[Rfam]
About this RNA:
c-di-AMP riboswitch aptamer (ydaO/yuaA leader): a 137-nucleotide RNA from Actinoplanes philippinensis.
RNA sequence: CGGGAGCCGCCGCCUAAUCGCCGUCAUUGGCGAGCCGGGGAACCAGUAUUCCCUGGGGUGAAUCCGCCACCAGCGGUAGGGAUUUCCUUCGUCCCGAACCCGUCAGCUAACCCGGCCGGCGGCCGACGGAAGGAAAU
Numbered sequence: 001c002g003g004g005a006g007c008c009g010c011c012g013c014c015u016a017a018u019c020g021c022c023g024u025c026a027u028u029g030g031c032g033a034g035c036c037g038g039g040g041a042a043c044c045a046g047u048a049u050u051c052c053c054u055g056g057g058g059u060g061a062a063u064c065c066g067c068c069a070c071c072a073g074c075g076g077u078a079g080g081g082a083u084u085u086c087c088u089u090c091g092u093c094c095c096g097a098a099c100c101c102g103u104c105a106g107c108u109a110a111c112c113c114g115g116c117c118g119g120c121g122g123c124c125g126a127c128g129g130a131a132g133g134a135a136a137u
Base pairs, nucleotide, nucleotide: 011121012120013119014118018033019032020031021030022029023028034116035115036114037113038112039111044055045054056101057100058099064076065075066074067073079095080094081093082092